[Rfam]
RNA sequence: CAGUAAGGAUGUUCUGCUAAGAGCGCGGCGUCCUGCCGCAACGCAGAACUGACCCGCGUCGUGCGGG
Numbered sequence: 001c002a003g004u005a006a007g008g009a010u011g012u013u014c015u016g017c018u019a020a021g022a023g024c025g026c027g028g029c030g031u032c033c034u035g036c037c038g039c040a041a042c043g044c045a046g047a048a049c050u051g052a053c054c055c056g057c058g059u060c061g062u063g064c065g066g067g
Stems, first nucleotide, its partner, number of pairs: 011049007025039005053067005
Bacillaceae-1 RNA: a 67-nucleotide RNA sequence from Bacillus sp. SJS. The family's RNA type in Rfam is small RNA. The source organism's lineage runs through Bacteria, Bacillota, Bacilli, Caryophanales and Bacillus.